The family of this 89-nucleotide RNA sequence from Paenibacillus ginsengarvi is "c-di-GMP-I riboswitch aptamer". Lineage of the source: Bacteria > Bacilli > Caryophanales > Paenibacillaceae > Paenibacillus. Rfam describes the family as follows. GEMM was predicted in a large-scale screen for bacterial structured RNA regulatory elements.
[Rfam]
RNA sequence: AUACGAUAAUGGCAAACUUAUUGAAAAAUAAGGACGCAAAGCUACGGGCCUAAGGCGGAUUAUACCGCUAUGGCAGCCGGGUUGCCGAG
Numbered sequence: 001a002u003a004c005g006a007u008a009a010u011g012g013c014a015a016a017c018u019u020a021u022u023g024a025a026a027a028a029u030a031a032g033g034a035c036g037c038a039a040a041g042c043u044a045c046g047g048g049c050c051u052a053a054g055g056c057g058g059a060u061u062a063u064a065c066c067g068c069u070a071u072g073g074c075a076g077c078c079g080g081g082u083u084g085c086c087g088a089g
Base pairs, nucleotide, nucleotide: 012037013036017032018031019030020029021028022027040083041082042081043080045079046078047077048074049073050072055068056067057066058065